Rfam assigns this 93-nucleotide sequence from Legionella clemsonensis to the family "TPP riboswitch aptamer (THI element)".
The family's consensus secondary structure is taken from published work.
From the family's description: Vitamin B(1) in its active form thiamin pyrophosphate (TPP) is an essential coenzyme that is synthesised by coupling of pyrimidine and thiazole moieties in bacteria.
Lineage of the source: Bacteria > Pseudomonadota > Legionellales > Legionellaceae > Legionella.
[Rfam]
RNA sequence: UUAGAUGGCGCGGGGUGUCGGGAAACCGACUGAGAAUUACCCGUCGAACUUGAUCUGAGUCAUAUCAGCGUAAGGACGCCUUCAAUACAUCCA
Numbered sequence: 001u002u003a004g005a006u007g008g009c010g011c012g013g014g015g016u017g018u019c020g021g022g023a024a025a026c027c028g029a030c031u032g033a034g035a036a037u038u039a040c041c042c043g044u045c046g047a048a049c050u051u052g053a054u055c056u057g058a059g060u061c062a063u064a065u066c067a068g069c070g071u072a073a074g075g076a077c078g079c080c081u082u083c084a085a086u087a088c089a090u091c092c093a
Base pairs, nucleotide, nucleotide: 007080008079009078010077011043012042013041014040017030018029019028020027021026049074050073051072052071055068056067057066058065